This 66-nucleotide sequence belongs to the Rfam family "S15-Flavobacteria ribosomal protein leader".
The family's consensus secondary structure is taken from published work.
Its Rfam clan is "Ribosomal Protein S15 Leader clan".
The sequence is in the family's curated seed alignment.
On this family, see Eckert and Weinberg, BMC Microbiol 2020: "Discovery of 20 novel ribosomal leader candidates in bacteria and archaea".
[Rfam]
RNA sequence: UAUUUUUGCAGCCUGAUUGCCAAAGAGGUAAUCGUACAUAAAAAUCAUUUAAAUAAUAUUUGCAUG
Numbered sequence: 001u002a003u004u005u006u007u008g009c010a011g012c013c014u015g016a017u018u019g020c021c022a023a024a025g026a027g028g029u030a031a032u033c034g035u036a037c038a039u040a041a042a043a044a045u046c047a048u049u050u051a052a053a054u055a056a057u058a059u060u061u062g063c064a065u066g
Stems, first nucleotide, its partner, number of pairs: 014034006